[Rfam]
Nucleotides: 097
Stems, first nucleotide, its partner, number of pairs: 006067005015029006030057003035053003038049002044091001069081004
Number, partner (000 for none) and nucleotide at each position: 001000a002000g003000u004000c005000g006067u007066u008065a009064u010063c011000a012000c013000g014000a015029a016028u017027c018026u019025c020024g021000c022000a023000a024020u025019g026018a027017g028016a029015u030057a031056g032055c033000a034000a035053c036052c037051u038049g039048c040000a041000g042000c043000a044091a045000c046000a047000a048039g049038c050000a051037a052036g053035g054000u055032g056031c057030u058000a059000a060000a061000a062000c063010g064009a065008u066007a067006a068000g069081c070080c071079a072078a073000a074000u075000c076000c077000u078072u079071u080070g081069g082000a083000a084000a085000a086000a087000a088000u089000g090000u091044u092000g093000u094000u095000u096000u097000c
SAM-I/IV (S-adenosyl methionine) riboswitch aptamer: a 97-nucleotide RNA sequence from Flavobacterium sp. TAB 87. The source organism's lineage runs through Bacteria, Pseudomonadati, Bacteroidota, Flavobacteriia and Flavobacterium. Its Rfam clan is "SAM clan". On this family, see Weinberg et al., RNA 2008: "The aptamer core of SAM-IV riboswitches mimics the ligand-binding site of SAM-I riboswitches". Rfam 15.1 lists 567 matches to the family in 508 species. It scores 53 bits against the family's covariance model.